[Rfam]
RNA sequence: AUUUCCUUUAAGUGAGUCCAGAGAGGUGAACAAGGUAAACAAGAAGAAAAAGAGUCAAUAGGUCUCUUCAUUUUGUGUAACCUCGUUUCUUUGGAAAUGAGGUUUUUUGUU
Number, nucleotide and partner (000 for none) at each position: 001a000002u000003u037004u000005c035006c034007u033008u032009u000010a000011a000012g000013u030014g000015a000016g027017u026018c025019c000020a000021g000022a000023g000024a000025g018026g017027u016028g000029a000030a013031c000032a008033a007034g006035g005036u000037a003038a000039a000040c000041a000042a000043g000044a073045a000046g072047a071048a000049a000050a068051a067052g066053a065054g064055u000056c062057a000058a000059u000060a000061g000062g056063u000064c054065u053066c052067u051068u050069c000070a000071u047072u046073u044074u000075g000076u000077g106078u000079a104080a103081c102082c101083u100084c099085g098086u097087u096088u095089c094090u000091u000092u000093g000094g089095a088096a087097a086098u085099g084100a083101g082102g081103u080104u079105u000106u077107u000108u000109g000110u000111u000

Shown here is a 111-nucleotide RNA sequence from Streptococcus ictaluri, a member of the family "PyrR binding site". It is annotated as a cis-regulatory element. Gene Ontology terms of the family: pyrimidine nucleobase biosynthetic process and pyrimidine nucleobase transport. For this family Rfam cites "Molecular recognition of pyr mRNA by the Bacillus subtilis attenuation regulatory protein PyrR" (Bonner et al., Nucleic Acids Res, 2001). The base pairs follow the family's consensus structure, which is taken from published work.